RNA sequence: GCCCUUCAGAGCUGAGGCUGUAUCGUAACCAGGCUGUGAGCAAGAUAAGCAUGGGUAUGAUACGACCUCAACUCGGAGAGC
Numbered sequence: 001g002c003c004c005u006u007c008a009g010a011g012c013u014g015a016g017g018c019u020g021u022a023u024c025g026u027a028a029c030c031a032g033g034c035u036g037u038g039a040g041c042a043a044g045a046u047a048a049g050c051a052u053g054g055g056u057a058u059g060a061u062a063c064g065a066c067c068u069c070a071a072c073u074c075g076g077a078g079a080g081c
Stems, first nucleotide, its partner, number of pairs: 001081002004078004009074003013070005019064009029054003033050002035047003
RNA: mir-729 microRNA precursor family